[Rfam]
RNA sequence: AGAAAUUUGAGAGGAUCUGUCCCUAGUACGAGAGGACCGGGAUGGACACACCAAUGGUGUACCAGUUGUAAAGCCAUUUGCAUAGCUGGGUAGCUACGUGUGGAAACGAUAAGUACUGAAAGCAUCUAAGUACGAAACAGACCUCAAGAUAAGAUUUCUCAGAGUACGUAAAGAAAAUACGUUUGAUAGGUCCAAGGUGUAAGUACAGUAAUGUAUUAAGCUAAUGGAUACUAAACUUUAUA
Number, nucleotide and partner (000 for none) at each position: 001a159002g158003a157004a156005a155006u154007u153008u152009g000010a000011g145012a144013g143014g142015a000016u000017c045018u044019g043020u042021c041022c040023c039024u000025a000026g000027u000028a000029c000030g000031a000032g000033a000034g000035g000036a000037c000038c000039g023040g022041g021042a020043u019044g018045g017046a000047c102048a101049c100050a099051c098052c000053a000054a000055u096056g095057g094058u000059g000060u000061a000062c089063c088064a087065g086066u085067u082068g081069u080070a079071a078072a077073g000074c000075c000076a000077u072078u071079u070080g069081c068082a067083u000084a000085g066086c065087u064088g063089g062090g000091u000092a000093g000094c057095u056096a055097c000098g051099u050100g049101u048102g047103g000104a000105a000106a000107c000108g138109a000110u000111a000112a000113g133114u132115a131116c130117u129118g000119a000120a000121a000122g000123c000124a000125u000126c000127u000128a000129a117130g116131u115132a114133c113134g000135a000136a000137a000138c108139a000140g000141a000142c014143c013144u012145c011146a000147a000148g000149a000150u000151a000152a008153g007154a006155u005156u004157u003158c002159u001160c000161a000162g238163a237164g236165u235166a182167c181168g180169u179170a178171a000172a000173g000174a000175a000176a000177a000178u170179a169180c168181g167182u166183u000184u000185g000186a000187u233188a232189g231190g229191u228192c227193c226194a225195a000196g222197g221198u000199g000200u000201a000202a000203g216204u215205a214206c213207a212208g000209u000210a000211a000212u207213g206214u205215a204216u203217u000218a000219a000220g000221c197222u196223a000224a000225u194226g193227g192228a191229u190230a000231c189232u188233a187234a000235a165236c164237u163238u162239u000240a000241u000242a000
The record is a 242-nucleotide part of an RNA from Anaerococcus lactolyticus, which matches "Bacterial large subunit ribosomal RNA" in Rfam. Gene Ontology terms of the family: ribosome and structural constituent of ribosome. The match comes from Rfam's covariance-model search (2699 bits). Lineage of the source: Bacteria > Bacillati > Tissierellales > Anaerococcus > Anaerococcus lactolyticus.